[Rfam]
RNA sequence: UGACGUCGGUUCCUCCUCCUGUGUGAAGUCCGUCAGGAGGAUUUUACGACGUCGCACAGCGACUCGGGUCUUUUUCACCCAGAAUGCCUCGGGCCACAGCGCCCACAUCACAUGGCUUCCUGGUUUUGCGAGACCCAACAAAC
Numbered sequence: 001u002g003a004c005g006u007c008g009g010u011u012c013c014u015c016c017u018c019c020u021g022u023g024u025g026a027a028g029u030c031c032g033u034c035a036g037g038a039g040g041a042u043u044u045u046a047c048g049a050c051g052u053c054g055c056a057c058a059g060c061g062a063c064u065c066g067g068g069u070c071u072u073u074u075u076c077a078c079c080c081a082g083a084a085u086g087c088c089u090c091g092g093g094c095c096a097c098a099g100c101g102c103c104c105a106c107a108u109c110a111c112a113u114g115g116c117u118u119c120c121u122g123g124u125u126u127u128g129c130g131a132g133a134c135c136c137a138a139c140a141a142a143c
Base pairs, nucleotide, nucleotide: 001054002053003052004051005050006049007048008047014041015040016039017038018037020035021034067135068134069133070132071131072130079123080122081121082120084118086116087115088114